[Rfam]
RNA sequence: GCCAAAUGAUGUCAACUAGACGGCAUUAGCACUUGGUGCAAAGAUGACCUUUAUCUAUCACCCUAUGCUGAUGGCU
Numbered sequence: 001g002c003c004a005a006a007u008g009a010u011g012u013c014a015a016c017u018a019g020a021c022g023g024c025a026u027u028a029g030c031a032c033u034u035g036g037u038g039c040a041a042a043g044a045u046g047a048c049c050u051u052u053a054u055c056u057a058u059c060a061c062c063c064u065a066u067g068c069u070g071a072u073g074g075c076u
Stems, first nucleotide, its partner, number of pairs: 001075004029039004
A member of the RNA family "Small nucleolar RNA SNORD83" from Anseranas semipalmata, 76 nucleotides long. Gene Ontology terms of the family: nucleolus and RNA processing. A search with the family's covariance model found it, with a score of 62 bits. Rfam 15.1 lists 1,393 matches to the family in 644 species. The literature on the family includes a 2000 paper in Nucleic Acids Res by Jady and Kiss, "Characterisation of the U83 and U84 small nucleolar RNAs: two novel 2'-O-ribose methylation guide RNAs that lack complementarities to ribosomal RNAs".